Annotation: Rfam assigns this 103-nucleotide RNA sequence from Acetohalobium arabaticum to the family "Manganese Mn2+ riboswitch aptamer (yybP-ykoY)". The match comes from Rfam's covariance-model search (51 bits). Rfam links the family to the GO term manganese ion binding. Pairs were carried over by alignment from the consensus structure.
RNA sequence: UAAAUUGUUAAAGGGGAGUAGCUACCUUACUUUUAGUAAGGAGAUAAAAUCAACAUCUUGAUCAAUUGAUCUGGUUUUAUCAUAACUAUAUUUUAUCUAGUUA
Numbered sequence: 001u002a003a004a005u006u007g008u009u010a011a012a013g014g015g016g017a018g019u020a021g022c023u024a025c026c027u028u029a030c031u032u033u034u035a036g037u038a039a040g041g042a043g044a045u046a047a048a049a050u051c052a053a054c055a056u057c058u059u060g061a062u063c064a065a066u067u068g069a070u071c072u073g074g075u076u077u078u079a080u081c082a083u084a085a086c087u088a089u090a091u092u093u094u095a096u097c098u099a100g101u102u103a
Stems, first nucleotide, its partner, number of pairs: 025041003043081010060071004083103006
Dot-bracket structure: ........................(((...........))).((((((((((.......((((....)))))))))))))).((((((.........))))))